[Rfam]
RNA sequence: GGACGUACCUGUAGACCUUGCCUGACUGUGGUGGUCAUGGCCAGGCAGGGGGGACAUUGUGUGCAAGAAUAAUUUGAAAUUUCUGCCAGCUUUAGCCAGUCAGUAAUCAGUGGCUGGAUAAAUUGCAGGAGUCUAACAUUC
Numbered sequence: 001g002g003a004c005g006u007a008c009c010u011g012u013a014g015a016c017c018u019u020g021c022c023u024g025a026c027u028g029u030g031g032u033g034g035u036c037a038u039g040g041c042c043a044g045g046c047a048g049g050g051g052g053g054a055c056a057u058u059g060u061g062u063g064c065a066a067g068a069a070u071a072a073u074u075u076g077a078a079a080u081u082u083c084u085g086c087c088a089g090c091u092u093u094a095g096c097c098a099g100u101c102a103g104u105a106a107u108c109a110g111u112g113g114c115u116g117g118a119u120a121a122a123u124u125g126c127a128g129g130a131g132u133c134u135a136a137c138a139u140u141c
Stems, first nucleotide, its partner, number of pairs: 004063005016050009076134001078132001081130001084127003096117005
RNA: Small nucleolar RNA SNORA58
Organism: Callithrix jacchus